[Rfam]
RNA sequence: GUCGAAAAAGCCAAACCCUUUGUGAAGAGGGGACGGAAAGCCACGGGUCUUUCGACAAGACGGCCGGGUUGCUGAAG
Numbered sequence: 001g002u003c004g005a006a007a008a009a010g011c012c013a014a015a016c017c018c019u020u021u022g023u024g025a026a027g028a029g030g031g032g033a034c035g036g037a038a039a040g041c042c043a044c045g046g047g048u049c050u051u052u053c054g055a056c057a058a059g060a061c062g063g064c065c066g067g068g069u070u071g072c073u074g075a076a077g
Stems, first nucleotide, its partner, number of pairs: 003074002011036002016031006034063001039070004044066003047061003

Shown here is a 77-nucleotide sequence from Candidatus Sulfobium mesophilum, a member of the family "c-di-GMP-I-GGC riboswitch aptamer". The match comes from Rfam's covariance-model search (67 bits). The family has 40 seed sequences and 1,298 matches in Rfam 15.1. Rfam links the family to the GO term cyclic-di-GMP binding. Its Rfam clan is "c-di-GMP_I riboswitch clan".